A member of the RNA family "Small nucleolar RNA SNORA42/SNORA80 family" from Geotrypetes seraphini, 140 nucleotides long. Rfam 15.1 lists 1,535 matches to the family in 183 species. A search with the family's covariance model found it, with a score of 89 bits. The members of this family belong to the H/ACA class of snoRNAs that guide the sites of modification of uridines to pseudouridines. Human ACA42 (SNORA42) was cloned from HeLa cells by immunoprecipitation with anti-GAR1 antibody. Its is predicted to guide the pseudouridylation of residues U109 and U572 of 18S rRNA. ACA42 shares the same host gene with ACA26, ACA46, ACA50. This family also includes mammalian snoRNA ACA67 (SNORA80) which was identified by computational screening and its expression in mouse experimentally verified by Northern blot and primer extension analysis. ACA67 is proposed to guide the pseudouridylation of the same 18S rRNA residues as ACA42. The family's consensus secondary structure was predicted with RNAalifold. NCBI's taxonomy places the organism under Eukaryota, Gnathostomata, Amphibia, Dermophiidae, Geotrypetes. Gene Ontology terms of the family: nucleolus and RNA processing.

[Rfam]
RNA sequence: GCAUGGUCUCUGGAUUUAUGGUAGAUUCUUACUCAUGAUCCUGCCAUAGUGUACCCCAUGCUAUAGUAACAUCCUGCCCCGAACCAUUGACAAGUCCAGUGUACCCAUGGGCUUAGUUCACUGAAGUGGGUAGUACAACC
Numbered sequence: 001g002c003a004u005g006g007u008c009u010c011u012g013g014a015u016u017u018a019u020g021g022u023a024g025a026u027u028c029u030u031a032c033u034c035a036u037g038a039u040c041c042u043g044c045c046a047u048a049g050u051g052u053a054c055c056c057c058a059u060g061c062u063a064u065a066g067u068a069a070c071a072u073c074c075u076g077c078c079c080c081g082a083a084c085c086a087u088u089g090a091c092a093a094g095u096c097c098a099g100u101g102u103a104c105c106c107a108u109g110g111g112c113u114u115a116g117u118u119c120a121c122u123g124a125a126g127u128g129g130g131u132a133g134u135a136c137a138a139c140c
Stems, first nucleotide, its partner, number of pairs: 001061004005056002009053001016049006023042002026038002074133006085123002090118001092114006